This 148-nucleotide RNA from Ralstonia pickettii belongs to the Rfam family "sbcD RNA". Pairs were carried over by alignment from the consensus structure, which is taken from published work.
RNA sequence: CCUGCGGUGGACGAAAGUCCUAAAUGGGUUGUUGUGCGGCGUGAACAUGCUGCACGAGAACGACUUUACGUUCUCCCCCCUGAGCGAAGUGCAUUGGCACGACGCUCCCUGUGAGCCACGCCCCCGAAAGGGGCGUGGCAGCAGGUUU
Dot-bracket structure: ........((((....))))..........(..(((((((((....)))))))))(((((((......)))))))..)...(((((..((((....))))..)))))(((((..((((((((((.....)))))))))).)))))...
The source organism's lineage runs through Bacteria, Pseudomonadati, Pseudomonadota, Betaproteobacteria and Ralstonia pickettii. The family's RNA type in Rfam is small RNA.